The record is a 108-nucleotide RNA from Callorhinchus milii, which matches "mir-223 microRNA precursor family" in Rfam.
A search with the family's covariance model found it, with a score of 82 bits.
A reference for the family is Lim et al. (2003), "Vertebrate microRNA genes", Science.
Its family is annotated with miRNA-mediated post-transcriptional gene silencing and RISC complex in the Gene Ontology.
[Rfam]
RNA sequence: CCGGUUGAUCACAGCUUCUACGCUAAGUGUAUUUGACAAGCUGAAUUCAGACACUCCAUUCAUAAGAGUGUCAGUUUGUCAAAUACCCCAAGUGCAGAGCUGACCAGC
Numbered sequence: 001c002c003g004g005u006u007g008a009u010c011a012c013a014g015c016u017u018c019u020a021c022g023c024u025a026a027g028u029g030u031a032u033u034u035g036a037c038a039a040g041c042u043g044a045a046u047u048c049a050g051a052c053a054c055u056c057c058a059u060u061c062a063u064a065a066g067a068g069u070g071u072c073a074g075u076u077u078g079u080c081a082a083a084u085a086c087c088c089c090a091a092g093u094g095c096a097g098a099g100c101u102g103a104c105c106a107g108c
Stems, first nucleotide, its partner, number of pairs: 021094004027088001029086014050072004055067002